[Rfam]
RNA sequence: GCUACAAGCCGUUCUAUCGCCUGCGGUUAUCAACCGCAGGAGGAAAGUCCGGGCAACACAGAGCGCCACACCACCUAACAGGUGGGGCCAUAAGGGGCAACUCCUAUGGUACAGAAAGUGUCACAGAGAAUUACCAAACCUGUACAGUUUACGGGAAGGGGUGAAAAUGCAGGCAGACCCUGCAGUUUUAUGCGGUAACGCAUAAAAAGGACAAACCUUGUGGGUUGAAAGACCAAAUAUACCGGCUUUUUUUUGACAAAUGUCAAAAAAUAAAAGUUGCUCGCUUAAUGCCGGGGGGUGGGUCGUUAGAUUCUGUCAGUAAUGGCAGAACCAGAUAAAUGAUAGAACGUUUUUCUGCAAAGAAAGGCGACAGAAUCCGGCUUACAGGCUUGUAGCUUUU
Numbered sequence: 001g002c003u004a005c006a007a008g009c010c011g012u013u014c015u016a017u018c019g020c021c022u023g024c025g026g027u028u029a030u031c032a033a034c035c036g037c038a039g040g041a042g043g044a045a046a047g048u049c050c051g052g053g054c055a056a057c058a059c060a061g062a063g064c065g066c067c068a069c070a071c072c073a074c075c076u077a078a079c080a081g082g083u084g085g086g087g088c089c090a091u092a093a094g095g096g097g098c099a100a101c102u103c104c105u106a107u108g109g110u111a112c113a114g115a116a117a118g119u120g121u122c123a124c125a126g127a128g129a130a131u132u133a134c135c136a137a138a139c140c141u142g143u144a145c146a147g148u149u150u151a152c153g154g155g156a157a158g159g160g161g162u163g164a165a166a167a168u169g170c171a172g173g174c175a176g177a178c179c180c181u182g183c184a185g186u187u188u189u190a191u192g193c194g195g196u197a198a199c200g201c202a203u204a205a206a207a208a209g210g211a212c213a214a215a216c217c218u219u220g221u222g223g224g225u226u227g228a229a230a231g232a233c234c235a236a237a238u239a240u241a242c243c244g245g246c247u248u249u250u251u252u253u254u255g256a257c258a259a260a261u262g263u264c265a266a267a268a269a270a271u272a273a274a275a276g277u278u279g280c281u282c283g284c285u286u287a288a289u290g291c292c293g294g295g296g297g298g299u300g301g302g303u304c305g306u307u308a309g310a311u312u313c314u315g316u317c318a319g320u321a322a323u324g325g326c327a328g329a330a331c332c333a334g335a336u337a338a339a340u341g342a343u344a345g346a347a348c349g350u351u352u353u354u355c356u357g358c359a360a361a362g363a364a365a366g367g368c369g370a371c372a373g374a375a376u377c378c379g380g381c382u383u384a385c386a387g388g389c390u391u392g393u394a395g396c397u398u399u400u
Base pairs, nucleotide, nucleotide: 001396002395003394004393005392006391007390008389009388010387011385012347013346014345015344016343017342018341020040021039022038023037024036025035026034027033028032045383046382047381049380050379051378052377053376054227055226056225057224061282062281063280064279066223067222068221069220070219071085072084073083074082075081086112087110088109089108090107091106092105113218114217118216119215120212121211122210134160135159139155140154141153142152143151144150168184169183170182171181172180173179187206188205189204190203191202192201193200194199231304232303233302234301242294243293244292245291246290274286275285276284277283311330312329313328314327315326316325317324318323
Dot-bracket structure: ((((((((((((((((((.(((((((((...)))))))))....[[[.[[[[[((((...[[[[.((((((((((.....)))))(((((((............)))))).)((...(((((...........((...((((((.....))))))...)).......((((((.....))))))..((((((((....))))))))...)))..)))))))))))))...((((.......(((((...........................((((.]]]]))))...)))))......))))......((((((((....))))))))..........)))))))............................]]]]]]]].).))))))))))....
Bacterial RNase P class A: a 400-nucleotide sequence from Sphingobacteriales bacterium UPWRP_1. By type it is a ribozyme. Gene Ontology terms of the family: ribonuclease P activity, tRNA processing and dimeric ribonuclease P complex. NCBI's taxonomy places the organism under Bacteria, Pseudomonadati, Bacteroidota, Sphingobacteriia, Sphingobacteriales. The match comes from Rfam's covariance-model search (230 bits).